Shown here is a 129-nucleotide sequence from Musa troglodytarum, a member of the family "Small nucleolar RNA snoR74".
Rfam links the family to the GO terms nucleolus and RNA processing.

RNA sequence: AGAAAAGCAGGGGCAUGUUUUAUGCAUAAACAAGCUUCUCGUAAGAUUUAGGUAAAUUAUAUCCAUUGUUAUUGGGUGAACCUGUGUACAUUGUUGAUGACCGAAGGUUCAGUGAACAAUGAAACAUUU
Numbered sequence: 001a002g003a004a005a006a007g008c009a010g011g012g013g014c015a016u017g018u019u020u021u022a023u024g025c026a027u028a029a030a031c032a033a034g035c036u037u038c039u040c041g042u043a044a045g046a047u048u049u050a051g052g053u054a055a056a057u058u059a060u061a062u063c064c065a066u067u068g069u070u071a072u073u074g075g076g077u078g079a080a081c082c083u084g085u086g087u088a089c090a091u092u093g094u095u096g097a098u099g100a101c102c103g104a105a106g107g108u109u110c111a112g113u114g115a116a117c118a119a120u121g122a123a124a125c126a127u128u129u
Base pairs, nucleotide, nucleotide: 005048006047011037012036014034016032017031062123064121065120066119067118068117069116070115077111078110079109080108081107082106083105
For this family Rfam cites "Experimental RNomics: identification of 140 candidates for small non-messenger RNAs in the plant Arabidopsis thaliana" (Marker et al., Curr Biol, 2002). NCBI's taxonomy places the organism under Eukaryota, Streptophytina, Embryophyta, Mesangiospermae, Musa. It scores 87 bits against the family's covariance model.